[Rfam]
Vault RNA: a 105-nucleotide RNA from Labrus bergylta. About the family: This family of RNAs are found as part of the enigmatic vault ribonucleoprotein complex. It is annotated as a non-coding RNA gene.
RNA sequence: GCACUGGUUUAGCUCAGUGGUUACUUCAAACACAUUUCCUCCUGUAGAAAAAGUUGCUCUCCAUCCCUCCCUGGGAUUGAACCACGGACGCUGUCCAGUGCGUUU
Numbered sequence: 001g002c003a004c005u006g007g008u009u010u011a012g013c014u015c016a017g018u019g020g021u022u023a024c025u026u027c028a029a030a031c032a033c034a035u036u037u038c039c040u041c042c043u044g045u046a047g048a049a050a051a052a053g054u055u056g057c058u059c060u061c062c063a064u065c066c067c068u069c070c071c072u073g074g075g076a077u078u079g080a081a082c083c084a085c086g087g088a089c090g091c092u093g094u095c096c097a098g099u100g101c102g103u104u105u
Stems, first nucleotide, its partner, number of pairs: 002100006012089001014087002017085004025081005

It scores 57 bits against the family's covariance model.
Pairs were carried over by alignment from the consensus structure, which is taken from published work.